[Rfam]
RNA sequence: GGUGAGAUGAUGAGCCUUUCCCCAGAUGAUCGACUGUGAACAUGCUGAGCGCUAUUUUUCUUCUCCUCUGAGGAGAUCAAGCCAGGACUCUGAUCACC
Numbered sequence: 001g002g003u004g005a006g007a008u009g010a011u012g013a014g015c016c017u018u019u020c021c022c023c024a025g026a027u028g029a030u031c032g033a034c035u036g037u038g039a040a041c042a043u044g045c046u047g048a049g050c051g052c053u054a055u056u057u058u059u060c061u062u063c064u065c066c067u068c069u070g071a072g073g074a075g076a077u078c079a080a081g082c083c084a085g086g087a088c089u090c091u092g093a094u095c096a097c098c
Stems, first nucleotide, its partner, number of pairs: 001098005
Description:
Shown here is a 98-nucleotide RNA sequence from Zingiber officinale, a member of the family "Small nucleolar RNA Z103". The literature on the family includes a 2003 paper in Nucleic Acids Res by Chen et al., "The high diversity of snoRNAs in plants: identification and comparative study of 120 snoRNA genes from Oryza sativa". The family's consensus secondary structure was predicted with PFOLD. Taxonomically the source falls in Zingiber (Eukaryota, Viridiplantae, Magnoliopsida, Mesangiospermae). Rfam 15.1 lists 2,844 matches to the family in 233 species. Gene Ontology terms of the family: RNA processing and nucleolus. By type it is a C/D-box small nucleolar RNA.